[Rfam]
RNA sequence: GGGAAUAAGUGGAGCAGUGGAUCUCCACUUUGAUACAUUAGAUAUAAGUGAGAUUCAACUACUCCAACUUCUUCCC
Number, nucleotide and partner (000 for none) at each position: 001g000002g000003g000004a000005a000006u000007a070008a069009g068010u066011g065012g064013a063014g062015c000016a060017g000018u000019g000020g000021a000022u053023c052024u000025c000026c050027a049028c048029u047030u046031u000032g000033a000034u000035a000036c000037a000038u000039u000040a000041g000042a000043u000044a000045u000046a030047a029048g028049u027050g026051a000052g023053a022054u000055u000056c000057a000058a000059c000060u016061a000062c014063u013064c012065c011066a010067a000068c009069u008070u007071c000072u000073u000074c000075c000076c000
RNA: mir-1175 microRNA precursor family
Organism: Daphnia pulex